Rfam assigns this 125-nucleotide RNA from Providencia stuartii to the family "Phenylalanine leader peptide". Gene Ontology term of the family: cellular amino acid metabolic process. A search with the family's covariance model found it, with a score of 77 bits. On this family, see Zurawski et al., Proc Natl Acad Sci U S A 1978: "Nucleotide sequence of the leader region of the phenylalanine operon of Escherichia coli".

RNA sequence: AAUUAAAUGCAAACCGUUACUUUUCGUUUCUUCUUUUACUUUAGCACCUGAAUAUCGGGGGCUUAUGCGUGUAGAAAAGAAACGAAAAAUUACGCCAAAGCCUCCUUUAGGGAGGCUUUUUUGUU
Numbered sequence: 001a002a003u004u005a006a007a008u009g010c011a012a013a014c015c016g017u018u019a020c021u022u023u024u025c026g027u028u029u030c031u032u033c034u035u036u037u038a039c040u041u042u043a044g045c046a047c048c049u050g051a052a053u054a055u056c057g058g059g060g061g062c063u064u065a066u067g068c069g070u071g072u073a074g075a076a077a078a079g080a081a082a083c084g085a086a087a088a089a090u091u092a093c094g095c096c097a098a099a100g101c102c103u104c105c106u107u108u109a110g111g112g113a114g115g116c117u118u119u120u121u122u123g124u125u
Stems, first nucleotide, its partner, number of pairs: 016093002019090001021088012034076001036074004042057001058068001060066001097119010